[Rfam]
RNA sequence: GAUUACAACACUAACUUCUCUGUAAUCGCGGCUG
Numbered sequence: 001g002a003u004u005a006c007a008a009c010a011c012u013a014a015c016u017u018c019u020c021u022g023u024a025a026u027c028g029c030g031g032c033u034g
Stems, first nucleotide, its partner, number of pairs: 001027007
The family of this 34-nucleotide RNA sequence is "S4-Bacteroidia ribosomal protein leader". The family's RNA type in Rfam is cis-regulatory leader. The base pairs follow the family's consensus structure, which is taken from published work. The family is grouped with related families in Rfam's "Ribosomal Protein S4 Leader clan".